[Rfam]
RNA sequence: AAUAAAGGACCUUCUUCUAAAACUGCACACGUCCUGUGCCGGGCGUAGAAGCUGCCGCAUCCUGUGGA
Dot-bracket structure: ..........(((((.(..........(((.....)))......).)))))...((((.....)))).
This 68-nucleotide RNA sequence from Alteribacillus persepolensis belongs to the Rfam family "Bacillaceae-1 RNA".